[Rfam]
RNA sequence: GUGGUCUGGGGAAAGGCUCCUGUGUUGCUGAACCUGCCCCGCUGCGGGUGCAGCCUCGUACCUGGCAGCCCUACCAUGACCUAAAGCAAAUUCCCGGGAGGAGUGCUUCCUGGGUUUUGGAUUUGCAGUAACAGGUGUGAACAUUCUAGAAGCAGUUUGAUGAUCAUGUAUGAUACUGCAAACAAGA
Numbered sequence: 001g002u003g004g005u006c007u008g009g010g011g012a013a014a015g016g017c018u019c020c021u022g023u024g025u026u027g028c029u030g031a032a033c034c035u036g037c038c039c040c041g042c043u044g045c046g047g048g049u050g051c052a053g054c055c056u057c058g059u060a061c062c063u064g065g066c067a068g069c070c071c072u073a074c075c076a077u078g079a080c081c082u083a084a085a086g087c088a089a090a091u092u093c094c095c096g097g098g099a100g101g102a103g104u105g106c107u108u109c110c111u112g113g114g115u116u117u118u119g120g121a122u123u124u125g126c127a128g129u130a131a132c133a134g135g136u137g138u139g140a141a142c143a144u145u146c147u148a149g150a151a152g153c154a155g156u157u158u159g160a161u162g163a164u165c166a167u168g169u170a171u172g173a174u175a176c177u178g179c180a181a182a183c184a185a186g187a
Stems, first nucleotide, its partner, number of pairs: 003081004009075002015070004019065002022062001024061002027054004032049003093114003096110005122182009132172002138166003142162004148157002
Shown here is a 187-nucleotide RNA sequence from Myotis davidii, a member of the family "Small Cajal body specific RNA 16". Rfam describes the family as follows. scaRNAs are a specific class of small nuclear RNAs which localise to the Cajal bodies and guide the modification of RNA polymerase II transcribed spliceosomal RNAs U1, U2, U4, U5 and U12. ACA47 belongs to the H/ACA box class of guide RNAs as it has the predicted hairpin-hinge-hairpin-tail structure, the conserved H/ACA-box motifs and is found associated with GAR1. It scores 203 bits against the family's covariance model. The family has 37 seed sequences and 790 matches in Rfam 15.1. On this family, see Darzacq et al., EMBO J 2002: "Cajal body-specific small nuclear RNAs: a novel class of 2'-O-methylation and pseudouridylation guide RNAs".